RNA sequence: UUUCGUUUCUAAGUACUAGUGCCGCAGGAGAAUGGUGGCUUCGUACAGCUCCUGCUGCUCCAGUGCUUAUCAAUGGAA
Number, nucleotide and partner (000 for none) at each position: 001u078002u077003u076004c075005g074006u073007u072008u000009c000010u069011a068012a067013g066014u065015a064016c063017u062018a000019g060020u000021g000022c000023c000024g055025c054026a053027g052028g051029a050030g049031a000032a000033u000034g000035g000036u000037g000038g000039c000040u000041u000042c000043g000044u000045a000046c000047a000048g000049c030050u029051c028052c027053u026054g025055c024056u000057g000058c000059u000060c019061c000062a017063g016064u015065g014066c013067u012068u011069a010070u000071c000072a007073a006074u005075g004076g003077a002078a001

Rfam assigns this 78-nucleotide RNA from Allacma fusca to the family "mir-252 microRNA precursor family". Rfam links the family to the GO terms miRNA-mediated post-transcriptional gene silencing and RISC complex. The family is grouped with related families in Rfam's "mir-252 microRNA precursor family". NCBI's taxonomy places the organism under Eukaryota, Metazoa, Arthropoda, Pancrustacea, Allacma. For this family Rfam cites "Direct sequencing and expression analysis of a large number of miRNAs in Aedes aegypti and a multi-species survey of novel mosquito miRNAs" (Li et al., BMC Genomics, 2009). It scores 72 bits against the family's covariance model.